[Rfam]
RNA sequence: UCGGAGUAAAAUAGUGAGAAGCCGACAAGGGGAAGUGAUCGACCCUUAGGAUAAGUUUAAAUUUGCUUUUUUUACUCCAUAAACUUUUUACCGUGGAUAAAAAGAUUCUUCUUCGGGUAAAAAAAAUCAAAUUAAAAUUUAGACCAAGUGUUGAUGAUGUAUUUUUUCCAUGAAGGUUGCUCACUAUUUUACCCCAU
Numbered sequence: 001u002c003g004g005a006g007u008a009a010a011a012u013a014g015u016g017a018g019a020a021g022c023c024g025a026c027a028a029g030g031g032g033a034a035g036u037g038a039u040c041g042a043c044c045c046u047u048a049g050g051a052u053a054a055g056u057u058u059a060a061a062u063u064u065g066c067u068u069u070u071u072u073u074a075c076u077c078c079a080u081a082a083a084c085u086u087u088u089u090a091c092c093g094u095g096g097a098u099a100a101a102a103a104g105a106u107u108c109u110u111c112u113u114c115g116g117g118u119a120a121a122a123a124a125a126a127u128c129a130a131a132u133u134a135a136a137a138u139u140u141a142g143a144c145c146a147a148g149u150g151u152u153g154a155u156g157a158u159g160u161a162u163u164u165u166u167u168c169c170a171u172g173a174a175g176g177u178u179g180c181u182c183a184c185u186a187u188u189u190u191a192c193c194c195c196a197u
Stems, first nucleotide, its partner, number of pairs: 003195002006192013020178004026172002029169007038158004042151002046147002049144001052141004057136002060133006067126007074118004079113001084104007092096001
The family of this 197-nucleotide sequence from Medicago truncatula is "MIR2670 microRNA precursor family". The match comes from Rfam's covariance-model search (158 bits).